[Rfam]
RNA: TD-2 RNA
RNA sequence: ACCGCCAUGGAAGGCGGUGUUAGUUUGCUUUAGGUGGAAUUUUUGCAUAGCAAAAACUCCGAACAGAAAAAACGGCAUGGAGGCCGUUUUUUCUGUCACU
Numbered sequence: 001a002c003c004g005c006c007a008u009g010g011a012a013g014g015c016g017g018u019g020u021u022a023g024u025u026u027g028c029u030u031u032a033g034g035u036g037g038a039a040u041u042u043u044u045g046c047a048u049a050g051c052a053a054a055a056a057c058u059c060c061g062a063a064c065a066g067a068a069a070a071a072a073c074g075g076c077a078u079g080g081a082g083g084c085c086g087u088u089u090u091u092u093c094u095g096u097c098a099c100u
Stems, first nucleotide, its partner, number of pairs: 001018006036060003040056007063096014